[Rfam]
RNA sequence: AUACGGAAUGCUGUAAGGGAGUGCUUUGCGCGCGGGCAGGAAACAGGG
Numbered sequence: 001a002u003a004c005g006g007a008a009u010g011c012u013g014u015a016a017g018g019g020a021g022u023g024c025u026u027u028g029c030g031c032g033c034g035g036g037c038a039g040g041a042a043a044c045a046g047g048g
Stems, first nucleotide, its partner, number of pairs: 009038004021033004

This 48-nucleotide sequence belongs to the Rfam family "ssnA RNA". The sequence is in the family's curated seed alignment. Pairs were carried over by alignment from the consensus structure, which is taken from published work.